This 191-nucleotide RNA sequence from Gopherus agassizii belongs to the Rfam family "U2 spliceosomal RNA". Lineage of the source: Eukaryota > Craniata > Teleostomi > Sauropsida > Gopherus. The match comes from Rfam's covariance-model search (74 bits). The family's RNA type in Rfam is spliceosomal small nuclear RNA. Pairs were carried over by alignment from the consensus structure, which is taken from published work.

Nucleotides: 191
Base pairs, nucleotide, nucleotide: 007028009026012023013022014021049068051066052065053064069083070082071081072080073079112144113143115141118138119137124135125134126133127132147184148183149182150181151180152179154176156174157173
Number, partner (000 for none) and nucleotide at each position: 001000c002000u003000u004000a005000a006000a007028u008000c009026u010000c011000u012023g013022c014021u015000g016000u017000u018000c019000u020000c021014a022013g023012c024000u025000a026009a027000a028007a029000u030000c031000a032000a033000g034000u035000g036000u037000a038000g039000u040000g041000u042000c043000u044000a045000a046000u047000g048000u049068u050000u051066u052065c053064a054000a055000u056000u057000u058000a059000a060000u061000g062000u063000c064053u065052g066051a067000u068049g069083u070082g071081u072080u073079u074000u075000a076000u077000u078000u079073g080072a081071g082070c083069a084000g085000u086000g087000u088000a089000c090000a091000u092000c093000a094000a095000a096000u097000u098000g099000a100000u101000u102000u103000u104000u105000g106000a107000a108000g109000u110000a111000g112144g113143g114000u115141g116000a117000u118138g119137g120000a121000a122000u123000a124135g125134g126133a127132g128000c129000u130000u131000g132127c133126u134125u135124u136000g137119u138118c139000c140000a141115c142000c143113c144112c145000a146000u147184g148183u149182a150181u151180c152179a153000a154176c155000a156174u157173g158000c159000u160000g161000u162000g163000g164000u165000a166000g167000u168000a169000u170000u171000u172000c173157u174156a175000g176154g177000a178000a179152u180151g181150g182149u183148a184147c185000c186000u187000u188000u189000c190000c191000u

About the family: U2 is a small nuclear RNA (snRNA) component of the spliceosome (involved in pre-mRNA splicing). Complementary binding between U2 snRNA (in an area lying towards the 5' end but 3' to hairpin I) and the branchpoint sequence (BPS) of the intron results the bulging out of an unpaired adenosine, on the BPS, which initiates a nucleophilic attack at the intronic 5' splice site, thus starting the first of two transesterification reactions that mediate splicing.